[Rfam]
RNA sequence: GCUGGUGAUGAUCUAAUCCACUUGUUUGAGGUGUUUGUGGAGCUGAGACCCUGUUUUACAGGGAGAACCCCUUGGUGAAGCAACAUUCAUAUGACAUAAAUGGAUUUAGCUGAGGC
Numbered sequence: 001g002c003u004g005g006u007g008a009u010g011a012u013c014u015a016a017u018c019c020a021c022u023u024g025u026u027u028g029a030g031g032u033g034u035u036u037g038u039g040g041a042g043c044u045g046a047g048a049c050c051c052u053g054u055u056u057u058a059c060a061g062g063g064a065g066a067a068c069c070c071c072u073u074g075g076u077g078a079a080g081c082a083a084c085a086u087u088c089a090u091a092u093g094a095c096a097u098a099a100a101u102g103g104a105u106u107u108a109g110c111u112g113a114g115g116c
Base pairs, nucleotide, nucleotide: 001116002115003114049063050062051061052060053059
Background
This 116-nucleotide sequence from Senna tora belongs to the Rfam family "Small nucleolar RNA Z278". A reference for the family is Chen et al. (2003), "The high diversity of snoRNAs in plants: identification and comparative study of 120 snoRNA genes from Oryza sativa", Nucleic Acids Res. Rfam 15.1 lists 1,130 matches to the family in 214 species. The organism belongs to Senna, within Eukaryota. snoZ278 is a C/D box small nucleolar RNA. Its methylation guide targets have not been reported. Pairs were carried over by alignment from the consensus structure, which was predicted with PFOLD.